[Rfam]
The family of this 65-nucleotide RNA sequence from Bombyx mori is "mir-2 microRNA precursor family". For this family Rfam cites "microRNAs: tiny regulators with great potential" (Ambros, Cell, 2001). The source organism's lineage runs through Eukaryota, Allotriocarida, Panorpida, Bombycoidea and Bombyx. The family's consensus secondary structure was predicted with PFOLD. Gene Ontology terms of the family: RISC complex and miRNA-mediated post-transcriptional gene silencing.
RNA sequence: CCACUCGUAAAAAUGGCUGUGUCGUGUAGCAACCCUCAUAUCACAGCCAUUUUUGACGAGUUGGG
Numbered sequence: 001c002c003a004c005u006c007g008u009a010a011a012a013a014u015g016g017c018u019g020u021g022u023c024g025u026g027u028a029g030c031a032a033c034c035c036u037c038a039u040a041u042c043a044c045a046g047c048c049a050u051u052u053u054u055g056a057c058g059a060g061u062u063g064g065g
Stems, first nucleotide, its partner, number of pairs: 005059004010054004014049008025040003